Rfam assigns this 94-nucleotide RNA from Clostridium acetobutylicum to the family "THF (Tetrahydrofolate) riboswitch aptamer".
Rfam links the family to the GO term tetrahydrofolate metabolic process.
The sequence is in the family's curated seed alignment.
The source organism's lineage runs through Bacteria, Eubacteriales, Clostridiaceae, Clostridium and Clostridium acetobutylicum.
The base pairs follow the family's consensus structure, which is taken from published work.
RNA sequence: AGCAGAGUAGAUAUUGUGCGUCAAGUGUUAGAGGAUGGGAAGUUGUCUCUAAACGAAAAGCUUAGUCUUGCGGUUCAAUAUCGCUUCCGCUGUU
Numbered sequence: 001a002g003c004a005g006a007g008u009a010g011a012u013a014u015u016g017u018g019c020g021u022c023a024a025g026u027g028u029u030a031g032a033g034g035a036u037g038g039g040a041a042g043u044u045g046u047c048u049c050u051a052a053a054c055g056a057a058a059a060g061c062u063u064a065g066u067c068u069u070g071c072g073g074u075u076c077a078a079u080a081u082c083g084c085u086u087c088c089g090c091u092g093u094u
Base pairs, nucleotide, nucleotide: 001094002093003092004091005090010082011081012080013079014078015077016076018074019072020071021070025054026053028052029051030050031049032048033047034046038088039087040086041085042084058069059068060067